[Rfam]
RNA sequence: UUAAGUUAAUUAUAUAAGAUAUAUCAUUUUUUUUAAAAUUAUACGCGCAUUCAUCUCAAUAAACUGUAAAGCCCCAUAAUUUUUCAUUUGAGGUUGAUGCAUAUAAUUAAGAGAUGAUAUAUUUUAUGUGGUUAACUUAACU
Numbered sequence: 001u002u003a004a005g006u007u008a009a010u011u012a013u014a015u016a017a018g019a020u021a022u023a024u025c026a027u028u029u030u031u032u033u034u035a036a037a038a039u040u041a042u043a044c045g046c047g048c049a050u051u052c053a054u055c056u057c058a059a060u061a062a063a064c065u066g067u068a069a070a071g072c073c074c075c076a077u078a079a080u081u082u083u084u085c086a087u088u089u090g091a092g093g094u095u096g097a098u099g100c101a102u103a104u105a106a107u108u109a110a111g112a113g114a115u116g117a118u119a120u121a122u123u124u125u126a127u128g129u130g131g132u133u134a135a136c137u138u139a140a141c142u
Stems, first nucleotide, its partner, number of pairs: 001140025029113003034110001036108002039106005045100002049098003053094004